[Rfam]
RNA sequence: UAUAAGAGUGAUUGGCGUCCGUACGUACCCUCUCUACUCUAAAACUCUUGUAGUUUAAAUCUAAUCUAAUCUAAACUUUAUAAACGGCACUUCCUGCGUGUCCAUGCCCGUGGGCCUGGUCUUGUCAUAGUGCUGACAUUUGUGGUUCCUUGACUUUCGUUCUCUGCCAGUGACGUGUCCAUUCGGCGCCAGCAGCCCACCCAUAGGUUGCAUAAUGGCAAAGAUGGGCAAAUACGGUCUCGGCUUCAAAUGGGCCCCAGAAUUUCCAUGGAUGCUUCCGAACGCAUCGGAGAAGUUGGG
Numbered sequence: 001u002a003u004a005a006g007a008g009u010g011a012u013u014g015g016c017g018u019c020c021g022u023a024c025g026u027a028c029c030c031u032c033u034c035u036a037c038u039c040u041a042a043a044a045c046u047c048u049u050g051u052a053g054u055u056u057a058a059a060u061c062u063a064a065u066c067u068a069a070u071c072u073a074a075a076c077u078u079u080a081u082a083a084a085c086g087g088c089a090c091u092u093c094c095u096g097c098g099u100g101u102c103c104a105u106g107c108c109c110g111u112g113g114g115c116c117u118g119g120u121c122u123u124g125u126c127a128u129a130g131u132g133c134u135g136a137c138a139u140u141u142g143u144g145g146u147u148c149c150u151u152g153a154c155u156u157u158c159g160u161u162c163u164c165u166g167c168c169a170g171u172g173a174c175g176u177g178u179c180c181a182u183u184c185g186g187c188g189c190c191a192g193c194a195g196c197c198c199a200c201c202c203a204u205a206g207g208u209u210g211c212a213u214a215a216u217g218g219c220a221a222a223g224a225u226g227g228g229c230a231a232a233u234a235c236g237g238u239c240u241c242g243g244c245u246u247c248a249a250a251u252g253g254g255c256c257c258c259a260g261a262a263u264u265u266c267c268a269u270g271g272a273u274g275c276u277u278c279c280g281a282a283c284g285c286a287u288c289g290g291a292g293a294a295g296u297u298g299g300g
Stems, first nucleotide, its partner, number of pairs: 006034003010030001012027001015024001042056005087133005096125002100121001102119003106115003177190001179188001200218002205216001233259001236256004241252002